RNA sequence: GGUCAUGAGAUUCAGCGACAAGCUCCGGCUCGCUGGGCGGCAACCCUCGGUGCACAUCAAGUGCCGAACACGGUGGGGUGCUCCGGAUGACGACCAGGCGGUGCUCGACCCCGAGCCCCGCAAGCGUGGGGC
Number, nucleotide and partner (000 for none) at each position: 001g095002g094003u093004c092005a000006u000007g000008a000009g038010a000011u037012u036013c035014a034015g033016c032017g000018a000019c000020a000021a030022g029023c000024u000025c000026c000027g000028g000029c022030u021031c000032g016033c015034u014035g013036g012037g011038c009039g082040g081041c080042a000043a000044c078045c077046c076047u000048c073049g000050g000051u000052g000053c000054a000055c000056a000057u000058c000059a000060a000061g000062u000063g000064c000065c000066g000067a000068a000069c000070a000071c000072g000073g048074u000075g000076g046077g045078g044079u000080g041081c040082u039083c000084c000085g000086g000087a000088u000089g000090a000091c000092g004093a003094c002095c001096a000097g000098g121099c120100g119101g118102u000103g116104c115105u114106c113107g112108a000109c000110c000111c000112c107113g106114a105115g104116c103117c000118c101119c100120g099121c098122a000123a000124g000125c000126g000127u000128g000129g000130g000131g000132c000
Rfam assigns this 132-nucleotide sequence from Nakamurella panacisegetis to the family "SAM (S-adenosyl methionine) riboswitch aptamer". A search with the family's covariance model found it, with a score of 91 bits. SAM-IV is a mRNA element that regulates gene expression via direct sensing of S-adenosylmethionine (SAM or AdoMet). Taxonomically the source falls in Nakamurella (Bacteria, Bacillati, Actinomycetota, Nakamurellales). A reference for the family is Weinberg et al. (2008), "The aptamer core of SAM-IV riboswitches mimics the ligand-binding site of SAM-I riboswitches", RNA.